[Rfam]
RNA sequence: AAUUCAUCCAGAGUAACGGAGGGACUGGCCCUAUGAAGUUACGGCAACCAUCAGCGCUUCUAUUGGCUGAACGGUGCUAAGUCCAUCAGGCACUGCCUGAAAGAUGAAGA
Numbered sequence: 001a002a003u004u005c006a007u008c009c010a011g012a013g014u015a016a017c018g019g020a021g022g023g024a025c026u027g028g029c030c031c032u033a034u035g036a037a038g039u040u041a042c043g044g045c046a047a048c049c050a051u052c053a054g055c056g057c058u059u060c061u062a063u064u065g066g067c068u069g070a071a072c073g074g075u076g077c078u079a080a081g082u083c084c085a086u087c088a089g090g091c092a093c094u095g096c097c098u099g100a101a102a103g104a105u106g107a108a109g110a
Stems, first nucleotide, its partner, number of pairs: 003108006013042005021031003026085003043078004048074002051070004082102001087099005
A member of the RNA family "SAM riboswitch aptamer (S box leader)" from Acidaminococcus fermentans, 110 nucleotides long. Taxonomically the source falls in Acidaminococcus fermentans (Bacteria, Negativicutes, Acidaminococcales, Acidaminococcaceae). The family's consensus secondary structure is taken from published work.